[Rfam]
Record summary: A member of the RNA family "DUF805b RNA" from Rheinheimera nanhaiensis, 35 nucleotides long. The sequence is in the family's curated seed alignment. The family's consensus secondary structure is taken from published work. It is annotated as a cis-regulatory element. Lineage of the source: Bacteria > Pseudomonadota > Gammaproteobacteria > Chromatiaceae > Rheinheimera nanhaiensis.
RNA sequence: UCGGCGGCAACCGAAAAGCCUUAACAGAGUAGGUA
Numbered sequence: 001u002c003g004g005c006g007g008c009a010a011c012c013g014a015a016a017a018g019c020c021u022u023a024a025c026a027g028a029g030u031a032g033g034u035a
Stems, first nucleotide, its partner, number of pairs: 003020003010034003